Fluoride riboswitch aptamer (crcB RNA motif): a 68-nucleotide sequence from Pararobbsia silviterrae. Its family is annotated with response to fluoride and positive regulation of gene expression in the Gene Ontology. It scores 53 bits against the family's covariance model.
RNA sequence: CCGUCCACUGGAGAUGGCAUUCCUCCAAACAACCGCCGGCCAGCCCGGCUGAUGAUGCCUACGAGUUC
Numbered sequence: 001c002c003g004u005c006c007a008c009u010g011g012a013g014a015u016g017g018c019a020u021u022c023c024u025c026c027a028a029a030c031a032a033c034c035g036c037c038g039g040c041c042a043g044c045c046c047g048g049c050u051g052a053u054g055a056u057g058c059c060u061a062c063g064a065g066u067u068c
Base pairs, nucleotide, nucleotide: 010026011025012024013023016059017058018057019056020055021054035049036048037047038046